Glycine riboswitch aptamer: a 97-nucleotide sequence from Sandaracinobacteroides saxicola. The match comes from Rfam's covariance-model search (60 bits). Its family is annotated with glycine biosynthetic process in the Gene Ontology.

RNA sequence: GGCGGCGCUGCGGGAGAGUGCACCGGAUCCAGGUCCGGGGCCGCCGAAGGAGCAACCGCCCCCGGAAUCUCUCAGGCAACGGGACCGCAGCGCUCGC
Numbered sequence: 001g002g003c004g005g006c007g008c009u010g011c012g013g014g015a016g017a018g019u020g021c022a023c024c025g026g027a028u029c030c031a032g033g034u035c036c037g038g039g040g041c042c043g044c045c046g047a048a049g050g051a052g053c054a055a056c057c058g059c060c061c062c063c064g065g066a067a068u069c070u071c072u073c074a075g076g077c078a079a080c081g082g083g084a085c086c087g088c089a090g091c092g093c094u095c096g097c
Base pairs, nucleotide, nucleotide: 006092007091008090009089010088011087012086013085020041021040023038024037025036043077044076045075046073047072050071051070052069056064